[Rfam]
RNA sequence: UCCUUAUCAAGAGUGGUGGAGGGACUGGCCCUGUGAAACCACGGCAACCUGCAUAAAAACAAUUUAUGCAAAGGUGCCAAAUCCUGCAGGAAGUUUUCCGGGAGAUAAGGA
Numbered sequence: 001u002c003c004u005u006a007u008c009a010a011g012a013g014u015g016g017u018g019g020a021g022g023g024a025c026u027g028g029c030c031c032u033g034u035g036a037a038a039c040c041a042c043g044g045c046a047a048c049c050u051g052c053a054u055a056a057a058a059a060c061a062a063u064u065u066a067u068g069c070a071a072a073g074g075u076g077c078c079a080a081a082u083c084c085u086g087c088a089g090g091a092a093g094u095u096u097u098c099c100g101g102g103a104g105a106u107a108a109g110g111a
Stems, first nucleotide, its partner, number of pairs: 001111008013042005021031003025086001027084002043078004048074002050070007082103001087100001089098003
Background: This 111-nucleotide RNA from Defluviitoga tunisiensis belongs to the Rfam family "SAM riboswitch aptamer (S box leader)". The organism belongs to Defluviitoga, within Bacteria.